The record is a 67-nucleotide RNA from Caenorhabditis bovis, which matches "Small nucleolar RNA sn668" in Rfam. NCBI's taxonomy places the organism under Eukaryota, Opisthokonta, Eumetazoa, Rhabditina, Caenorhabditis.
Nucleotides: 067
Base pairs, nucleotide, nucleotide: 001067002066003065004064
Number, partner (000 for none) and nucleotide at each position: 001067g002066g003065u004064c005000g006000a007000u008000g009000a010000u011000g012000u013000g014000u015000u016000u017000c018000a019000a020000g021000a022000c023000g024000g025000g026000a027000c028000c029000g030000a031000c032000u033000u034000g035000u036000g037000a038000a039000u040000g041000a042000u043000g044000c045000a046000u047000a048000a049000c050000c051000a052000a053000u054000u055000c056000g057000u058000a059000u060000c061000u062000g063000a064004g065003a066002c067001u